[Rfam]
RNA sequence: AUUUCAGACAAACCCCCGUGGGGUUGAAGC
Numbered sequence: 001a002u003u004u005c006a007g008a009c010a011a012a013c014c015c016c017c018g019u020g021g022g023g024u025u026g027a028a029g030c
Base pairs, nucleotide, nucleotide: 011025012024013023014022015021
RNA: CRISPR RNA direct repeat element
Organism: Natronomonas moolapensis